[Rfam]
RNA sequence: UAGAUACCCACCAUGCCUUUUGCUCUUCACUCAGUAAAUAUUCCCUUGUGAAUGUGUAGCAAAAGACAAGAUGGGAAUCCA
Numbered sequence: 001u002a003g004a005u006a007c008c009c010a011c012c013a014u015g016c017c018u019u020u021u022g023c024u025c026u027u028c029a030c031u032c033a034g035u036a037a038a039u040a041u042u043c044c045c046u047u048g049u050g051a052a053u054g055u056g057u058a059g060c061a062a063a064a065g066a067c068a069a070g071a072u073g074g075g076a077a078u079c080c081a
Stems, first nucleotide, its partner, number of pairs: 003079003008074003014068002017065008026056001028054002031051003035048003
Shown here is an 81-nucleotide RNA from Neotoma lepida, a member of the family "mir-511 microRNA precursor family". Its family is annotated with miRNA-mediated post-transcriptional gene silencing and RISC complex in the Gene Ontology. The family has 2 seed sequences and 51 matches in Rfam 15.1. Pairs were carried over by alignment from the consensus structure, which was predicted with RNAalifold. Taxonomically the source falls in Neotoma (Eukaryota, Teleostomi, Theria, Eutheria).